The record is a 68-nucleotide RNA, which matches "int-alpA RNA" in Rfam. It is annotated as a small RNA. The sequence is in the family's curated seed alignment. The family's consensus secondary structure is taken from published work.

RNA sequence: UAACCGGAUAGCUCGACGGAGCAACAAGCGGGAUUCGUCCCCCGUUUCCGGUUAUUCCUAUCAGGGCG
Numbered sequence: 001u002a003a004c005c006g007g008a009u010a011g012c013u014c015g016a017c018g019g020a021g022c023a024a025c026a027a028g029c030g031g032g033a034u035u036c037g038u039c040c041c042c043c044g045u046u047u048c049c050g051g052u053u054a055u056u057c058c059u060a061u062c063a064g065g066g067c068g
Stems, first nucleotide, its partner, number of pairs: 001054008011022004028045005036068005